[Rfam]
RNA sequence: GUUGGGAAAUGAUGAGACUAUAUCGAUAUAUCAGAGGGACAGUUUAUCUGUGCUUUGCUGAAUAAAUUUUGCACGUCAGUCUGAUCCCAAU
Numbered sequence: 001g002u003u004g005g006g007a008a009a010u011g012a013u014g015a016g017a018c019u020a021u022a023u024c025g026a027u028a029u030a031u032c033a034g035a036g037g038g039a040c041a042g043u044u045u046a047u048c049u050g051u052g053c054u055u056u057g058c059u060g061a062a063u064a065a066a067u068u069u070u071g072c073a074c075g076u077c078a079g080u081c082u083g084a085u086c087c088c089a090a091u
Stems, first nucleotide, its partner, number of pairs: 001091007
Small nucleolar RNA Z122: a 91-nucleotide RNA from Solanum tuberosum.
By type it is a C/D-box small nucleolar RNA.
Lineage of the source: Eukaryota > Magnoliopsida > Solanaceae > Solanoideae > Solanum.
The family has 23 seed sequences and 822 matches in Rfam 15.1.